[Rfam]
RNA sequence: UGCUGUUAGUGAUGAUGUUUUAAACAGAUGGGAAUCUCUCUGAAAGAGAAUGAAGCCUAAUUUGAAACUGAAACAGUA
Number, nucleotide and partner (000 for none) at each position: 001u078002g077003c076004u075005g074006u073007u072008a000009g000010u000011g000012a000013u000014g000015a000016u000017g000018u000019u000020u000021u000022a000023a000024a000025c000026a000027g000028a000029u000030g000031g000032g000033a000034a000035u000036c000037u000038c000039u000040c000041u000042g000043a000044a000045a000046g000047a000048g000049a000050a000051u000052g000053a000054a000055g000056c000057c000058u000059a000060a000061u000062u000063u000064g000065a000066a000067a000068c000069u000070g000071a000072a007073a006074c005075a004076g003077u002078a001